[Rfam]
Nucleotides: 131
Stems, first nucleotide, its partner, number of pairs: 008082002011079002013026004027053003030048007054077005060071001101128002106124004112120002
Number, partner (000 for none) and nucleotide at each position: 001000a002000a003000a004000a005000a006000g007000g008082g009081u010000c011079u012078c013026u014025g015024u016023c017000c018000u019000g020000a021000g022000u023016g024015g025014c026013a027053c028052a029051u030048a031047g032046g033045g034044c035043a036042a037000c038000u039000c040000a041000a042036u043035u044034g045033u046032u047031u048030u049000u050000c051029a052028u053027g054077u055076g056075g057074a058073a059000u060071c061000c062000u063000c064000c065000u066000a067000a068000a069000a070000a071060g072000u073058u074057u075056u076055c077054a078012g079011a080000a081009g082008u083000a084000u085000a086000a087000u088000u089000c090000u091000u092000u093000a094000g095000u096000u097000g098000u099000u100000c101128g102127g103000c104000a105000u106124c107123u108122g109121g110000u111000g112120a113119u114000g115000a116000u117000u118000g119113g120112u121109c122108u123107g124106g125000c126000a127102c128101c129000c130000u131000u